[Rfam]
RNA sequence: CACAGCUUUCAAUUCCGUAGUGCAUUGCAGUUGAAAUUUAAAAAGCACUGCAAGCGCUGCGGAAUCGGCAUCUAUACA
Numbered sequence: 001c002a003c004a005g006c007u008u009u010c011a012a013u014u015c016c017g018u019a020g021u022g023c024a025u026u027g028c029a030g031u032u033g034a035a036a037u038u039u040a041a042a043a044a045g046c047a048c049u050g051c052a053a054g055c056g057c058u059g060c061g062g063a064a065u066c067g068g069c070a071u072c073u074a075u076a077c078a
Stems, first nucleotide, its partner, number of pairs: 007070001009068002014063005021056003025053005
This 78-nucleotide RNA sequence from Scaptodrosophila lebanonensis belongs to the Rfam family "mir-932 microRNA precursor family". It scores 55 bits against the family's covariance model. Rfam 15.1 lists 136 matches to the family in 136 species. Taxonomically the source falls in Scaptodrosophila (Eukaryota, Panarthropoda, Altocrustacea, Colocasiomyini). Rfam links the family to the GO terms miRNA-mediated post-transcriptional gene silencing and RISC complex.